[Rfam]
RNA: Plastid-clpP 5UTR RNA
Organism: Abrus precatorius
RNA sequence: AAUCAUAUUUGUAGGAAUAAGAAGAAGCAGAUAUAUUCUAUACCCGAUAAGUAAGAAUACGUAAUGGUG
Numbered sequence: 001a002a003u004c005a006u007a008u009u010u011g012u013a014g015g016a017a018u019a020a021g022a023a024g025a026a027g028c029a030g031a032u033a034u035a036u037u038c039u040a041u042a043c044c045c046g047a048u049a050a051g052u053a054a055g056a057a058u059a060c061g062u063a064a065u066g067g068u069g
Base pairs, nucleotide, nucleotide: 003022004021006019007018008017009016010015044067045066051060052059053058